A member of the RNA family "Enterococcus sRNA 2410" from Enterococcus florum, 204 nucleotides long. By type it is a small RNA. On this family, see Sinel et al., Sci Rep 2017: "Small RNAs in vancomycin-resistant Enterococcus faecium involved in daptomycin response and resistance". A search with the family's covariance model found it, with a score of 91 bits.
RNA sequence: UUAGCUAUUUUAGAUAAUGUUUGUAUUCAUCGGAAAUGGAUGCAAACAGAGCACAACGCAAGUUUGUAUCUAUGAUGGCUAGAGCAUUUUCACGUACCACAGCCACGUAGAGGAAAUACUAAGUGGCUGAGGAUAAAAGGAUUCAUUUUUUCCGUCUUUGCGAUCAUCCACUUAGAAAUCUGAGUGGGUGAUUUUUUAUUACAA
Numbered sequence: 001u002u003a004g005c006u007a008u009u010u011u012a013g014a015u016a017a018u019g020u021u022u023g024u025a026u027u028c029a030u031c032g033g034a035a036a037u038g039g040a041u042g043c044a045a046a047c048a049g050a051g052c053a054c055a056a057c058g059c060a061a062g063u064u065u066g067u068a069u070c071u072a073u074g075a076u077g078g079c080u081a082g083a084g085c086a087u088u089u090u091c092a093c094g095u096a097c098c099a100c101a102g103c104c105a106c107g108u109a110g111a112g113g114a115a116a117u118a119c120u121a122a123g124u125g126g127c128u129g130a131g132g133a134u135a136a137a138a139g140g141a142u143u144c145a146u147u148u149u150u151u152c153c154g155u156c157u158u159u160g161c162g163a164u165c166a167u168c169c170a171c172u173u174a175g176a177a178a179u180c181u182g183a184g185u186g187g188g189u190g191a192u193u194u195u196u197u198a199u200u201a202c203a204a
Base pairs, nucleotide, nucleotide: 001082002081003080004079005078006077007076011072012071013070014069015068016067019047020046021045022044023043024042025041026040027039028038029037030036051065053063054062089141090140091139096134101128102127103126104125105124106123108121109120110119142188143187144186145185146184147183148182